[Rfam]
Rfam assigns this 81-nucleotide sequence from Allorhizobium borbori to the family "ybhL leader". The match comes from Rfam's covariance-model search (64 bits). About the family: This family is a putative regulatory RNA structure that is found upstream of an uncharacterized membrane protein in alpha-proteobacteria.
RNA sequence: UAUGCUUGCUGUAGCUCCGCAGCGGCGCACGGGUUUAUGUCUCAAAGUAGUAUCCCGACACCGUACAACUUCGGAGCUUCG
Numbered sequence: 001u002a003u004g005c006u007u008g009c010u011g012u013a014g015c016u017c018c019g020c021a022g023c024g025g026c027g028c029a030c031g032g033g034u035u036u037a038u039g040u041c042u043c044a045a046a047g048u049a050g051u052a053u054c055c056c057g058a059c060a061c062c063g064u065a066c067a068a069c070u071u072c073g074g075a076g077c078u079u080c081g
Stems, first nucleotide, its partner, number of pairs: 013078007023063003030057004034052001